Notes
The record is a 227-nucleotide sequence from Paraburkholderia tagetis, which matches "Burkholderia sRNA Bp1_Cand871_SIPHT" in Rfam. The source organism's lineage runs through Bacteria, Pseudomonadati, Betaproteobacteria, Burkholderiaceae and Paraburkholderia. The family's consensus secondary structure was predicted with CMfinder. Rfam links the family to the GO term bacterial biofilm matrix. It scores 202 bits against the family's covariance model.

RNA sequence: UCGCCCACAAUGCUUUCAACGGUUUCAACACGGAUGUGGCUCGGUGUCAGUGUGAGCGGACACGACACACCGGCCGGUCGGCGUCAUGCCGAAGCCCAGUCAGGGGCAUCCUUGUUGGAGCCGUUACCGGCGUUUUGAAACGUUCCAAGACCCGGCUCCUCAUUUGGUCUCCUCGCGCUAACCCCGUAGCGUGUGGUUUUUAGCGGGCUCCAGGCCCGCUUUUUUUU
Numbered sequence: 001u002c003g004c005c006c007a008c009a010a011u012g013c014u015u016u017c018a019a020c021g022g023u024u025u026c027a028a029c030a031c032g033g034a035u036g037u038g039g040c041u042c043g044g045u046g047u048c049a050g051u052g053u054g055a056g057c058g059g060a061c062a063c064g065a066c067a068c069a070c071c072g073g074c075c076g077g078u079c080g081g082c083g084u085c086a087u088g089c090c091g092a093a094g095c096c097c098a099g100u101c102a103g104g105g106g107c108a109u110c111c112u113u114g115u116u117g118g119a120g121c122c123g124u125u126a127c128c129g130g131c132g133u134u135u136u137g138a139a140a141c142g143u144u145c146c147a148a149g150a151c152c153c154g155g156c157u158c159c160u161c162a163u164u165u166g167g168u169c170u171c172c173u174c175g176c177g178c179u180a181a182c183c184c185c186g187u188a189g190c191g192u193g194u195g196g197u198u199u200u201u202a203g204c205g206g207g208c209u210c211c212a213g214g215c216c217c218g219c220u221u222u223u224u225u226u227u
Stems, first nucleotide, its partner, number of pairs: 005167003018125013032111006038075003044068004050063004078092005095105003128149001171196002174193007202220008